RNA sequence: UACAUACAGAACAAGUCAACAUUAGCGAGCGACAUUGCUGCAUGGAAGACAGAAAUGGCUGGACUGGGUAUUUUUGGUGGUAGGCCGACUGACGACAGCAGCGAAUCAUUAUGGCUUUGGCAUUGGGCAGUCCGAGUGGCAGCUUGUCAACUUGGGCCCGAGUGAGCAGACAGCGCCGAACCAAAAAGCAGCUUGUCGGGACCCAUCUCGUGUUGGUGUCAAAGUUUCGUGCUUGUCCGGCACUGUGGGCUGGCGGAGCUGGCUGCGAGCUGGAGAUGUGCCUCGCAGCGCUUUUCGUGUUGAAAAUCUAUUCGUUUUGAAGGGACAGGCCCUGGGAUAUGGGUAGUCCUGGUUGUCCCGGCUGUCAGAAAUGUCGGACGGGGCAGCCCCCC
Numbered sequence: 001u002a003c004a005u006a007c008a009g010a011a012c013a014a015g016u017c018a019a020c021a022u023u024a025g026c027g028a029g030c031g032a033c034a035u036u037g038c039u040g041c042a043u044g045g046a047a048g049a050c051a052g053a054a055a056u057g058g059c060u061g062g063a064c065u066g067g068g069u070a071u072u073u074u075u076g077g078u079g080g081u082a083g084g085c086c087g088a089c090u091g092a093c094g095a096c097a098g099c100a101g102c103g104a105a106u107c108a109u110u111a112u113g114g115c116u117u118u119g120g121c122a123u124u125g126g127g128c129a130g131u132c133c134g135a136g137u138g139g140c141a142g143c144u145u146g147u148c149a150a151c152u153u154g155g156g157c158c159c160g161a162g163u164g165a166g167c168a169g170a171c172a173g174c175g176c177c178g179a180a181c182c183a184a185a186a187a188g189c190a191g192c193u194u195g196u197c198g199g200g201a202c203c204c205a206u207c208u209c210g211u212g213u214u215g216g217u218g219u220c221a222a223a224g225u226u227u228c229g230u231g232c233u234u235g236u237c238c239g240g241c242a243c244u245g246u247g248g249g250c251u252g253g254c255g256g257a258g259c260u261g262g263c264u265g266c267g268a269g270c271u272g273g274a275g276a277u278g279u280g281c282c283u284c285g286c287a288g289c290g291c292u293u294u295u296c297g298u299g300u301u302g303a304a305a306a307u308c309u310a311u312u313c314g315u316u317u318u319g320a321a322g323g324g325a326c327a328g329g330c331c332c333u334g335g336g337a338u339a340u341g342g343g344u345a346g347u348c349c350u351g352g353u354u355g356u357c358c359c360g361g362c363u364g365u366c367a368g369a370a371a372u373g374u375c376g377g378a379c380g381g382g383g384c385a386g387c388c389c390c391c392c
Stems, first nucleotide, its partner, number of pairs: 200220003203216003222234004

Ascomycota telomerase RNA: a 392-nucleotide part of an RNA from Akanthomyces lecanii.
The family has 4 seed sequences and 475 matches in Rfam 15.1.
It is annotated as a non-coding RNA gene.
A search with the family's covariance model found it, with a score of 239 bits.
Rfam links the family to the GO terms telomerase activity, telomerase catalytic core complex and telomere maintenance via telomerase.
A reference for the family is Qi et al. (2013), "The common ancestral core of vertebrate and fungal telomerase RNAs", Nucleic Acids Res.
Clan: Telomerase clan.
The pairing is the family consensus, mapped onto this sequence.